The record is a 121-nucleotide RNA sequence from Chrysochloris asiatica, which matches "Small nucleolar RNA SNORA31" in Rfam. ACA31 (SNORA31) belongs to the H/ACA class of snoRNAs which are thought to guide the sites of modification of uridines to pseudouridines. Pairs were carried over by alignment from the consensus structure, which was predicted with RNAalifold. A search with the family's covariance model found it, with a score of 50 bits. The literature on the family includes a 2001 paper in EMBO J by Huttenhofer et al., "RNomics: an experimental approach that identifies 201 candidates for novel, small, non-messenger RNAs in mouse". Rfam classes the family as an H/ACA-box small nucleolar RNA.
RNA sequence: UUCAUCUAUUUGACAGACCUGGUGCAGUUACGGUCUGUUUCUAAGGUUUAUACUAUAGAUGCAAGAAAAAGUUCCUCGCACUUUUUUUCUGCCAGCCAAGAUUGAAUAGAGGAACACAGGU
Numbered sequence: 001u002u003c004a005u006c007u008a009u010u011u012g013a014c015a016g017a018c019c020u021g022g023u024g025c026a027g028u029u030a031c032g033g034u035c036u037g038u039u040u041c042u043a044a045g046g047u048u049u050a051u052a053c054u055a056u057a058g059a060u061g062c063a064a065g066a067a068a069a070a071g072u073u074c075c076u077c078g079c080a081c082u083u084u085u086u087u088u089c090u091g092c093c094a095g096c097c098a099a100g101a102u103u104g105a106a107u108a109g110a111g112g113a114a115c116a117c118a119g120g121u
Base pairs, nucleotide, nucleotide: 003061004060005059006058007057008056011052012051015049016048017047018046019045022040024038025037026036027035073113074112075111076110077109081104084101085100086099087098089095090094
The source organism's lineage runs through Eukaryota, Chordata, Craniata, Euteleostomi and Chrysochloris.